[Rfam]
RNA sequence: AGGUCCAUCGCGUUCGCGUGAGCUCUAUAUUUCCUUGAACCGAUGCUCUACGAGCAAGGGCUUGGAAAAUGCCCGGCGGGCGUGAUCGUCUCGCGUCAGAUGAACCCGAAGCCCGGCUGACCUCGCCCACCUGAAUCCCCCUGGGUUCAGGAAUGCGGUUCACGGUUCGCGGUGGACACC
Number, nucleotide and partner (000 for none) at each position: 001a000002g000003g177004u176005c175006c174007a173008u172009c171010g170011c169012g168013u000014u000015c165016g000017c164018g163019u162020g000021a000022g000023c000024u000025c000026u000027a000028u000029a000030u000031u153032u152033c151034c150035u000036u149037g148038a147039a146040c145041c144042g000043a000044u000045g000046c000047u000048c000049u000050a000051c000052g000053a000054g000055c000056a000057a000058g128059g127060g126061c000062u000063u000064g122065g121066a000067a000068a000069a118070u000071g117072c116073c115074c000075g113076g112077c111078g000079g000080g000081c000082g105083u104084g000085a000086u000087c102088g101089u100090c099091u098092c000093g000094c000095g000096u000097c000098a091099g090100a089101u088102g087103a000104a083105c082106c000107c000108g000109a000110a000111g077112c076113c075114c000115g073116g072117c071118u069119g000120a000121c065122c064123u000124c000125g000126c060127c059128c058129a000130c000131c000132u000133g000134a000135a000136u000137c000138c000139c000140c000141c000142u000143g000144g041145g040146u039147u038148c037149a036150g034151g033152a032153a031154u000155g000156c000157g000158g000159u000160u000161c000162a019163c018164g017165g015166u000167u000168c012169g011170c010171g009172g008173u007174g006175g005176a004177c003178a000179c000180c000

The family of this 180-nucleotide sequence from Roseateles asaccharophilus is "6S / SsrS RNA". The base pairs follow the family's consensus structure, which is taken from published work. The family has 150 seed sequences and 5,006 matches in Rfam 15.1. A search with the family's covariance model found it, with a score of 57 bits. About the family: E. coli 6S RNA was the first non coding RNA to be sequenced, but its function was unknown until recently. It consists of 184 nucleotides that fold into an extended hairpin structure with a large single-stranded internal bulge. The 6S RNA specifically associates with RNA polymerase holoenzyme containing the sigma70 specificity factor. This interaction represses expression from a sigma70-dependent promoter during stationary phase. 6S RNA homologs have recently been identified in most bacterial genomes.